[Rfam]
Nucleotides: 087
Stems, first nucleotide, its partner, number of pairs: 002086005008081010019070006026063002034049003051058002
Number, partner (000 for none) and nucleotide at each position: 001000u002086c003085u004084g005083g006082c007000u008081g009080a010079g011078g012077u013076a014075g015074u016073a017072g018000u019070u020069u021068g022067u023066g024065c025000u026063g027062u028000u029000g030000g031000u032000c033000g034049g035048g036047g037000a038000g039000u040000c041000a042000c043000a044000c045000u046000g047036c048035c049034c050000c051058u052057u053000a054000u055000g056000g057052a058051g059000a060000u061000g062027a063026c064000u065024g066023c067022g068021c069020a070019a071000u072017c073016u074015a075014c076013u077012g078011c079010c080009u081008u082006g083005c084004c085003a086002g087000c
Shown here is an 87-nucleotide RNA from Cynoglossus semilaevis, a member of the family "let-7 microRNA precursor family". The family is grouped with related families in Rfam's "let-7 microRNA precursor clan". Its family is annotated with RISC complex and miRNA-mediated post-transcriptional gene silencing in the Gene Ontology. The organism belongs to Cynoglossus, within Eukaryota. For this family Rfam cites "Control of developmental timing in animals" (Rougvie, Nat Rev Genet, 2001). The base pairs follow the family's consensus structure, which was predicted with RNAalifold. Rfam describes the family as follows. This family represents the microRNAs (miRNA) let-7 and mir-98. let-7 was identified from a study of developmental timing in C. elegans, and was later shown to be part of a much larger class of non-coding RNAs termed miRNAs.